[Rfam]
RNA sequence: AUCAAUCUUCGGGGCAGGGUGAAAUUCCCUACCGGCGGUGAUGAGCCAAUGGCUCUAAGCCCGCGAGCUGUCUUUACAGCAGGAUUCGGUGAGAUUCCGGAGCCGACAGUACAGUCUGGAUGGGAGAAGAUGGAG
Numbered sequence: 001a002u003c004a005a006u007c008u009u010c011g012g013g014g015c016a017g018g019g020u021g022a023a024a025u026u027c028c029c030u031a032c033c034g035g036c037g038g039u040g041a042u043g044a045g046c047c048a049a050u051g052g053c054u055c056u057a058a059g060c061c062c063g064c065g066a067g068c069u070g071u072c073u074u075u076a077c078a079g080c081a082g083g084a085u086u087c088g089g090u091g092a093g094a095u096u097c098c099g100g101a102g103c104c105g106a107c108a109g110u111a112c113a114g115u116c117u118g119g120a121u122g123g124g125a126g127a128a129g130a131u132g133g134a135g
Stems, first nucleotide, its partner, number of pairs: 003133001005131006017029003031115002033105002035064004059103002085101005107118003

Background: A member of the RNA family "FMN riboswitch aptamer (RFN element)" from Bacillus subtilis, 135 nucleotides long. Taxonomically the source falls in Bacillus (Bacteria, Bacillati, Bacillota, Bacillaceae). It is one of the family's seed sequences.